[Rfam]
RNA: Enterobacteria sRNA STnc130
Organism: Enterobacteriaceae bacterium RIT714
RNA sequence: UAUAGGGAAAUGCAUUGUCAGCCAUUUUUUAUGCUGACUUUCAUUCGGAGGAGUAUUACUACUUUAGGGGCAGGCGAUAUUGCUUCGAGUCAAAACACAGGCAUAAAAAAAGCGCCAACAGGCGCUUUUUUGUUUAA
Numbered sequence: 001u002a003u004a005g006g007g008a009a010a011u012g013c014a015u016u017g018u019c020a021g022c023c024a025u026u027u028u029u030u031a032u033g034c035u036g037a038c039u040u041u042c043a044u045u046c047g048g049a050g051g052a053g054u055a056u057u058a059c060u061a062c063u064u065u066a067g068g069g070g071c072a073g074g075c076g077a078u079a080u081u082g083c084u085u086c087g088a089g090u091c092a093a094a095a096c097a098c099a100g101g102c103a104u105a106a107a108a109a110a111a112g113c114g115c116c117a118a119c120a121g122g123c124g125c126u127u128u129u130u131u132g133u134u135u136a137a
Stems, first nucleotide, its partner, number of pairs: 060069001109128008